[Rfam]
RNA sequence: GAAAAGGGAUGUGCGAAUCAUCCCCGCCGAAAGCCGCAGGGUUCCGGAGCCAGGAUCGUCCGCUCCGGGUUAGUCGGGCCUAAGGCGAGGCCGUUGAGGCGUAGUCGAUGGAGACACGGUCGAGAUUCCGUGACCAGCCGUCGGCGGUGAGUGUCGCGGGACAGGGGUCCGGCGGGAAGCGUCCCGUUGGUCGUGGACGUCGCUCCGCAAGGGGCGGGACGGCGCGGUGCGAGCUGCGCCGACAGUCGACGCGGGGCCCCUCAAGAAAAGCGCGGCAGGAGCCGGCGGUUGUCCGUACCCGAAACCGACACAGGUAGGCGAGGCGAGGAGCCUCAGGCGCG
Numbered sequence: 001g002a003a004a005a006g007g008g009a010u011g012u013g014c015g016a017a018u019c020a021u022c023c024c025c026g027c028c029g030a031a032a033g034c035c036g037c038a039g040g041g042u043u044c045c046g047g048a049g050c051c052a053g054g055a056u057c058g059u060c061c062g063c064u065c066c067g068g069g070u071u072a073g074u075c076g077g078g079c080c081u082a083a084g085g086c087g088a089g090g091c092c093g094u095u096g097a098g099g100c101g102u103a104g105u106c107g108a109u110g111g112a113g114a115c116a117c118g119g120u121c122g123a124g125a126u127u128c129c130g131u132g133a134c135c136a137g138c139c140g141u142c143g144g145c146g147g148u149g150a151g152u153g154u155c156g157c158g159g160g161a162c163a164g165g166g167g168u169c170c171g172g173c174g175g176g177a178a179g180c181g182u183c184c185c186g187u188u189g190g191u192c193g194u195g196g197a198c199g200u201c202g203c204u205c206c207g208c209a210a211g212g213g214g215c216g217g218g219a220c221g222g223c224g225c226g227g228u229g230c231g232a233g234c235u236g237c238g239c240c241g242a243c244a245g246u247c248g249a250c251g252c253g254g255g256g257c258c259c260c261u262c263a264a265g266a267a268a269a270g271c272g273c274g275g276c277a278g279g280a281g282c283c284g285g286c287g288g289u290u291g292u293c294c295g296u297a298c299c300c301g302a303a304a305c306c307g308a309c310a311c312a313g314g315u316a317g318g319c320g321a322g323g324c325g326a327g328g329a330g331c332c333u334c335a336g337g338c339g340c341g
Stems, first nucleotide, its partner, number of pairs: 006024006025339004033319003039299002044068006053061002075295004079111002084106003088102001090100003115132005135291011151276002155274004163261004169254003176247002179200006201222001205217004225241006305314002321333004